RNA sequence: GGCUGUGCGUCCACACUCACUGGAUCUGCAGCAUCCAAUGCUGACCCUCUGCAGCAGGGUACACAAGUGGACACACAGUC
Numbered sequence: 001g002g003c004u005g006u007g008c009g010u011c012c013a014c015a016c017u018c019a020c021u022g023g024a025u026c027u028g029c030a031g032c033a034u035c036c037a038a039u040g041c042u043g044a045c046c047c048u049c050u051g052c053a054g055c056a057g058g059g060u061a062c063a064c065a066a067g068u069g070g071a072c073a074c075a076c077a078g079u080c
Stems, first nucleotide, its partner, number of pairs: 001080007009072005021037005044060005
This 80-nucleotide RNA sequence from Drosophila phalerata belongs to the Rfam family "bZIP non canonical Hac1/Xbp1 intron". Taxonomically the source falls in Drosophila (Eukaryota, Eremoneura, Drosophilidae, Drosophilinae). From the family's description: bZIP intron RNA is a non-canonical intron that was first reported in HAC1 gene in yeast and XBP1 gene in Metazoa. The family's RNA type in Rfam is small RNA.